[Rfam]
The record is a 119-nucleotide RNA sequence from Alcanivorax borkumensis, which matches "Ribosomal S15 leader" in Rfam. The family's RNA type in Rfam is cis-regulatory leader. The E. coli Ribosomal S15 gene 5' UTR can form two alternative structures. One that is a series of three hairpins, The other includes a pseudoknot. This structure causes translational regulation of the S15 protein. Gene Ontology term of the family: regulation of translation, ncRNA-mediated. NCBI's taxonomy places the organism under Bacteria, Pseudomonadota, Oceanospirillales, Alcanivorax, Alcanivorax borkumensis. For this family Rfam cites "Pseudoknot and translational control in the expression of the S15 ribosomal protein" (Benard et al., Biochimie, 1996). The base pairs follow the family's consensus structure, which is taken from published work.
RNA sequence: GACGGCAGCUAUAAAUAUGCAUGGCUGGCCGUGACCUUAAUUGAGCAUAUUGGAGAAGCAUCAUGGCGUUAACCGUUGAACAAAAAGCUGAAAUUCUGAAAGAGCAUGGCCGCAAAGAG
Numbered sequence: 001g002a003c004g005g006c007a008g009c010u011a012u013a014a015a016u017a018u019g020c021a022u023g024g025c026u027g028g029c030c031g032u033g034a035c036c037u038u039a040a041u042u043g044a045g046c047a048u049a050u051u052g053g054a055g056a057a058g059c060a061u062c063a064u065g066g067c068g069u070u071a072a073c074c075g076u077u078g079a080a081c082a083a084a085a086a087g088c089u090g091a092a093a094u095u096c097u098g099a100a101a102g103a104g105c106a107u108g109g110c111c112g113c114a115a116a117g118a119g
Base pairs, nucleotide, nucleotide: 007026008025009024010023011022012021050072051071052070053069055067